About this RNA: SAM (S-adenosyl methionine) riboswitch aptamer: a 114-nucleotide RNA.
RNA sequence: GGUCACGAGUGCCAGCGCGAAGCCCCGGCUUGCUGGCCGGCAACCCUCCUCCGCGGCGGGGUGCCCCGGGUGAUGACCGGGCCGUCGCGACACCCGCGCCGGCAAGCGCGGAUC
Numbered sequence: 001g002g003u004c005a006c007g008a009g010u011g012c013c014a015g016c017g018c019g020a021a022g023c024c025c026c027g028g029c030u031u032g033c034u035g036g037c038c039g040g041c042a043a044c045c046c047u048c049c050u051c052c053g054c055g056g057c058g059g060g061g062u063g064c065c066c067c068g069g070g071u072g073a074u075g076a077c078c079g080g081g082c083c084g085u086c087g088c089g090a091c092a093c094c095c096g097c098g099c100c101g102g103c104a105a106g107c108g109c110g111g112a113u114c
Stems, first nucleotide, its partner, number of pairs: 001078004009038001011037006021030002039065003044061003048056002081103004086098004
The base pairs follow the family's consensus structure, which is taken from published work. A search with the family's covariance model found it, with a score of 106 bits. About the family: SAM-IV is a mRNA element that regulates gene expression via direct sensing of S-adenosylmethionine (SAM or AdoMet). SAM-IV riboswitches share conserved nucleotide positions with the previously described SAM-I riboswitches sequence analysis and molecular recognition experiments suggest that SAM-I and SAM-IV riboswitches share similar ligand binding sites, but have different scaffolds. Its family is annotated with regulation of gene expression and S-adenosylmethionine metabolic process in the Gene Ontology.